The record is a 95-nucleotide RNA sequence from Lupinus albus, which matches "Small nucleolar RNA R64/Z200 family" in Rfam.
The match comes from Rfam's covariance-model search (95 bits).
By type it is a C/D-box small nucleolar RNA.
Lineage of the source: Eukaryota > Viridiplantae > Streptophyta > core genistoids > Lupinus.
Pairs were carried over by alignment from the consensus structure, which was predicted with PFOLD.
[Rfam]
RNA sequence: AUUCUGCUUUGAUGAUUUAAGAACAAAUUCACAUGUCAGACUUCAGAGAUUUUAAAAAAUCAAUGAGAAUGAGAAUUCUAAAUUCUGAGCAGAAU
Numbered sequence: 001a002u003u004c005u006g007c008u009u010u011g012a013u014g015a016u017u018u019a020a021g022a023a024c025a026a027a028u029u030c031a032c033a034u035g036u037c038a039g040a041c042u043u044c045a046g047a048g049a050u051u052u053u054a055a056a057a058a059a060u061c062a063a064u065g066a067g068a069a070u071g072a073g074a075a076u077u078c079u080a081a082a083u084u085c086u087g088a089g090c091a092g093a094a095u
Stems, first nucleotide, its partner, number of pairs: 001095007048061004